[Rfam]
RNA sequence: AAUGAUACCCUCCCUCAAGGGGGACUCGCGAGAAAAGCAGCGGGGGAAGCAACGCCUCGGAUGAAAAAGGCCGAGGGGGGCAUUC
Number, nucleotide and partner (000 for none) at each position: 001a000002a000003u000004g000005a000006u000007a000008c000009c000010c000011u024012c023013c022014c021015u020016c000017a000018a000019g000020g015021g014022g013023g012024a011025c044026u043027c042028g041029c040030g000031a000032g000033a000034a000035a000036a000037g000038c000039a000040g029041c028042g027043g026044g025045g085046g084047a083048a000049g081050c080051a000052a000053c078054g000055c000056c000057u074058c073059g072060g071061a000062u000063g000064a000065a000066a000067a000068a000069g000070g000071c060072c059073g058074a057075g000076g000077g000078g053079g000080g050081c049082a000083u047084u046085c045

Rfam assigns this 85-nucleotide RNA sequence to the family "dinG RNA". Pairs were carried over by alignment from the consensus structure, which is taken from published work.